The family of this 131-nucleotide RNA sequence from Planococcus rifietoensis is "FMN riboswitch aptamer (RFN element)". The family's consensus secondary structure is taken from published work. The match comes from Rfam's covariance-model search (111 bits).
RNA sequence: GUAUUCCUUCGGGGUCGGGUGAAAUUCCCAAUCGACGGUAACGAAGCAAUUCGAAGCCCGUGAGCCUUUCGGGGCAGGAUUUGGUGCAAGUCCAAAGCCGACAGUUAGAGUCUGGAUGGGAGAAGGAAGAA
Numbered sequence: 001g002u003a004u005u006c007c008u009u010c011g012g013g014g015u016c017g018g019g020u021g022a023a024a025u026u027c028c029c030a031a032u033c034g035a036c037g038g039u040a041a042c043g044a045a046g047c048a049a050u051u052c053g054a055a056g057c058c059c060g061u062g063a064g065c066c067u068u069u070c071g072g073g074g075c076a077g078g079a080u081u082u083g084g085u086g087c088a089a090g091u092c093c094a095a096a097g098c099c100g101a102c103a104g105u106u107a108g109a110g111u112c113u114g115g116a117u118g119g120g121a122g123a124a125g126g127a128a129g130a131a
Base pairs, nucleotide, nucleotide: 004128005127006126007125008124009123010122017029018028019027031111032110033100034099035061036060037059038058056098057097066074080096081095082094083093084092102114103113104112